[Rfam]
RNA sequence: GGUGCAGUGAUGAGUUACUGGUGUGGGCAGUGGCGUUGGCUUUUCAUGGUCAUCACCGUGAGCCUUUUUCACCAAUCAAACGACUUUUCCUUCCACUGAGCGCU
Numbered sequence: 001g002g003u004g005c006a007g008u009g010a011u012g013a014g015u016u017a018c019u020g021g022u023g024u025g026g027g028c029a030g031u032g033g034c035g036u037u038g039g040c041u042u043u044u045c046a047u048g049g050u051c052a053u054c055a056c057c058g059u060g061a062g063c064c065u066u067u068u069u070c071a072c073c074a075a076u077c078a079a080a081c082g083a084c085u086u087u088u089c090c091u092u093c094c095a096c097u098g099a100g101c102g103c104u
Stems, first nucleotide, its partner, number of pairs: 001104005
Background: The family of this 104-nucleotide RNA from Zingiber officinale is "Small nucleolar RNA Z152/R70/R12/". The organism belongs to Zingiber, within Eukaryota.